[Rfam]
c-di-AMP riboswitch aptamer (ydaO/yuaA leader): a 154-nucleotide RNA from Streptomyces sp. MP131-18.
RNA sequence: UCACGACGAGGACCGGACCGCGGAUGCCGCGAAGGACCCAUGCGGGCCCGAGCGGCUUGGGGUGAAGCCCCGAGUACCGCAAGGCACUCGGGGCCGGGCAACUCACCUGACCCGAACCCGACAGCUCACCUCGCAGGCGUCGGUGAGAAGGAAC
Numbered sequence: 001u002c003a004c005g006a007c008g009a010g011g012a013c014c015g016g017a018c019c020g021c022g023g024a025u026g027c028c029g030c031g032a033a034g035g036a037c038c039c040a041u042g043c044g045g046g047c048c049c050g051a052g053c054g055g056c057u058u059g060g061g062g063u064g065a066a067g068c069c070c071c072g073a074g075u076a077c078c079g080c081a082a083g084g085c086a087c088u089c090g091g092g093g094c095c096g097g098g099c100a101a102c103u104c105a106c107c108u109g110a111c112c113c114g115a116a117c118c119c120g121a122c123a124g125c126u127c128a129c130c131u132c133g134c135a136g137g138c139g140u141c142g143g144u145g146a147g148a149a150g151g152a153a154c
Stems, first nucleotide, its partner, number of pairs: 004139002007136001011028001013026001029134004034129001039059002060119003068093008096113003
It scores 53 bits against the family's covariance model.